[Rfam]
RNA sequence: UGUGCAGUGCGAGGAUUUGUACGAACUCAUUUCUUGCCUUUUACCAGAAGUGACCGCGAGUCCCGCACAACACUGCACUUACUCAAUCUUUGGAAACAACUCGCCCCAUCAGGGGUU
Dot-bracket structure: ..((((.((((.(((((((.......((((((((...........))))))))...)))))))))))......))))................(.((..((.........))..)))